[Rfam]
RNA: permuted transfer-messenger RNA
Organism: alpha proteobacterium HIMB59
RNA sequence: AGCAAUAAACGCUAUAUGUAAUAGGUGUAUCGGACUCGGGGGCGGUACCCGACACCUCCACCAAAAAUUAUUUGGGGGUGAUAUAGGUUUGACGUGCUCUGAAGGAUAUAGUUUUUGCUCGUUGUAAGCGUUUCUUCGUCAUAGAAACUUUAAAAUAAUUGCUAACGAUAAUGAAUUAGCACUCGCUGCUUAA
Numbered sequence: 001a002g003c004a005a006u007a008a009a010c011g012c013u014a015u016a017u018g019u020a021a022u023a024g025g026u027g028u029a030u031c032g033g034a035c036u037c038g039g040g041g042g043c044g045g046u047a048c049c050c051g052a053c054a055c056c057u058c059c060a061c062c063a064a065a066a067a068u069u070a071u072u073u074g075g076g077g078g079u080g081a082u083a084u085a086g087g088u089u090u091g092a093c094g095u096g097c098u099c100u101g102a103a104g105g106a107u108a109u110a111g112u113u114u115u116u117g118c119u120c121g122u123u124g125u126a127a128g129c130g131u132u133u134c135u136u137c138g139u140c141a142u143a144g145a146a147a148c149u150u151u152a153a154a155a156u157a158a159u160u161g162c163u164a165a166c167g168a169u170a171a172u173g174a175a176u177u178a179g180c181a182c183u184c185g186c187u188g189c190u191u192a193a
Base pairs, nucleotide, nucleotide: 001119002118003117004116005115014109015108016107017106027097028096031094032093036052037051038050039049040048053080054079055078056077057076058075059074120138121137